[Rfam]
RNA sequence: ACUCGUGCUUCUCUUCAUAAUCGAAUGAAUAUUUUGCCUUUUACUAAAGAUUCAUGUGGGGAGGGAAAAAAAAAUGAAGAGCUAUUUCAAGACUCAAUGUUGGCAUUUAU
Numbered sequence: 001a002c003u004c005g006u007g008c009u010u011c012u013c014u015u016c017a018u019a020a021u022c023g024a025a026u027g028a029a030u031a032u033u034u035u036g037c038c039u040u041u042u043a044c045u046a047a048a049g050a051u052u053c054a055u056g057u058g059g060g061g062a063g064g065g066a067a068a069a070a071a072a073a074a075u076g077a078a079g080a081g082c083u084a085u086u087u088c089a090a091g092a093c094u095c096a097a098u099g100u101u102g103g104c105a106u107u108u109a110u
Stems, first nucleotide, its partner, number of pairs: 003077004009067008018058002027053004032048003092110001094109001096107004
The record is a 110-nucleotide RNA sequence from Balaenoptera physalus, which matches "U5 spliceosomal RNA" in Rfam. Rfam classes the family as a spliceosomal small nuclear RNA. A search with the family's covariance model found it, with a score of 47 bits. The family's consensus secondary structure is taken from published work. The source organism's lineage runs through Eukaryota, Opisthokonta, Theria, Eutheria and Balaenoptera.